RNA sequence: GAGUGGAGUGCGUGCACGGACUCUGUCCGGAGUGUCGCUCUGGUGUACUUCCCCGACAUCAGAUAGGCGCCCCGGACAGGGCCCUGUAUUCACCCCCUCGAAGA
Numbered sequence: 001g002a003g004u005g006g007a008g009u010g011c012g013u014g015c016a017c018g019g020a021c022u023c024u025g026u027c028c029g030g031a032g033u034g035u036c037g038c039u040c041u042g043g044u045g046u047a048c049u050u051c052c053c054c055g056a057c058a059u060c061a062g063a064u065a066g067g068c069g070c071c072c073c074g075g076a077c078a079g080g081g082c083c084c085u086g087u088a089u090u091c092a093c094c095c096c097c098u099c100g101a102a103g104a
Stems, first nucleotide, its partner, number of pairs: 010091001012089005018084002021081010032070005039063008
This 104-nucleotide sequence from Corynebacterium meridianum belongs to the Rfam family "mraW RNA".
Pairs were carried over by alignment from the consensus structure, which is taken from published work.
The match comes from Rfam's covariance-model search (62 bits).